[Rfam]
RNA sequence: ACGCGCGCCGAUGCCGAGAGGCUGAGGCCAAUGUCCGGGAAUGCGCAUUGCACGUUUCCGCCCCUGACCACGGAUGUACUGGCACGGGCGUCGAAACGGCAGAGGAAAGGUCGGGUAACUCCCGGCCUUUUUGCGU
Numbered sequence: 001a002c003g004c005g006c007g008c009c010g011a012u013g014c015c016g017a018g019a020g021g022c023u024g025a026g027g028c029c030a031a032u033g034u035c036c037g038g039g040a041a042u043g044c045g046c047a048u049u050g051c052a053c054g055u056u057u058c059c060g061c062c063c064c065u066g067a068c069c070a071c072g073g074a075u076g077u078a079c080u081g082g083c084a085c086g087g088g089c090g091u092c093g094a095a096a097c098g099g100c101a102g103a104g105g106a107a108a109g110g111u112c113g114g115g116u117a118a119c120u121c122c123c124g125g126c127c128u129u130u131u132u133g134c135g136u
Base pairs, nucleotide, nucleotide: 003046004045005044006043009039016036020035050100051099053098054097055096056095059090060089061088062087065084066083068082069081070080102134104132105131106130107129108128109127110126111125112124113123114122
Notes
This 136-nucleotide sequence from Paenirhizobium selenitireducens belongs to the Rfam family "Alphaproteobacterial sRNA ar35". On this family, see del Val et al., RNA Biol 2012: "A survey of sRNA families in alpha-proteobacteria". The base pairs follow the family's consensus structure. NCBI's taxonomy places the organism under Bacteria, Pseudomonadati, Alphaproteobacteria, Rhizobiaceae, Paenirhizobium selenitireducens. It is annotated as a small RNA.